[Rfam]
RNA sequence: AAGUGCUCCGGGGGCGGUGGAAUUCCGCACCGGCGGUUACAGUCCGCGAACCCCGUUCCGAGAGGGACGGGGCCGAUCCGGUGGAAUUCCGGAACCGACGGUCAGAGUCCGGAUGAGAGGAAGCACGC
Dot-bracket structure: ..((((((......(((.......))).[[((((((.....[[))))...((..................))....(((((.......)))))]])).(((.....]]))).......)..)))))..
Numbered sequence: 001a002a003g004u005g006c007u008c009c010g011g012g013g014g015c016g017g018u019g020g021a022a023u024u025c026c027g028c029a030c031c032g033g034c035g036g037u038u039a040c041a042g043u044c045c046g047c048g049a050a051c052c053c054c055g056u057u058c059c060g061a062g063a064g065g066g067a068c069g070g071g072g073c074c075g076a077u078c079c080g081g082u083g084g085a086a087u088u089c090c091g092g093a094a095c096c097g098a099c100g101g102u103c104a105g106a107g108u109c110c111g112g113a114u115g116a117g118a119g120g121a122a123g124c125a126c127g128c
Stems, first nucleotide, its partner, number of pairs: 003126005008119001015027003029108002031097002033047004042095002051072002077093005099111003